The family of this 253-nucleotide RNA sequence from Methyloceanibacter superfactus is "permuted transfer-messenger RNA". The family's RNA type in Rfam is non-coding RNA gene. A reference for the family is Williams and Bartel (1996), "Phylogenetic analysis of tmRNA secondary structure", RNA. A search with the family's covariance model found it, with a score of 142 bits. The family's consensus secondary structure is taken from published work.
RNA sequence: GGCGAUAAACGGGCGACGUAAUAAGCCAUUCGGACCCGGGGGCAGUACCCGGCGCCUCCACCAGGUUUCAGCUCGGGCGUUCUCGAAAGUGACGCGUUCCGAACUUCCAGCAGCCGAUCUGAAACGUGGCGGGGGCGAAACAGGAUCGACGAGGGUGUAAAAGUCGUGCUUUCGCUCGGCAUGGUACCGCCGUUAUCGGGCCAACCAAAUAGUUGCCAACGACAACUAUGCGGAGGCUCGUCUCGCUGCGUAG
Numbered sequence: 001g002g003c004g005a006u007a008a009a010c011g012g013g014c015g016a017c018g019u020a021a022u023a024a025g026c027c028a029u030u031c032g033g034a035c036c037c038g039g040g041g042g043c044a045g046u047a048c049c050c051g052g053c054g055c056c057u058c059c060a061c062c063a064g065g066u067u068u069c070a071g072c073u074c075g076g077g078c079g080u081u082c083u084c085g086a087a088a089g090u091g092a093c094g095c096g097u098u099c100c101g102a103a104c105u106u107c108c109a110g111c112a113g114c115c116g117a118u119c120u121g122a123a124a125c126g127u128g129g130c131g132g133g134g135g136c137g138a139a140a141c142a143g144g145a146u147c148g149a150c151g152a153g154g155g156u157g158u159a160a161a162a163g164u165c166g167u168g169c170u171u172u173c174g175c176u177c178g179g180c181a182u183g184g185u186a187c188c189g190c191c192g193u194u195a196u197c198g199g200g201c202c203a204a205c206c207a208a209a210u211a212g213u214u215g216c217c218a219a220c221g222a223c224a225a226c227u228a229u230g231c232g233g234a235g236g237c238u239c240g241u242c243u244c245g246c247u248g249c250g251u252a253g
Base pairs, nucleotide, nucleotide: 001176002175003174004173005172014166015165016164017163026155027154030152031151032150036052037051038050039049040048053137054136055135056134057133058132059131177192178191179190180189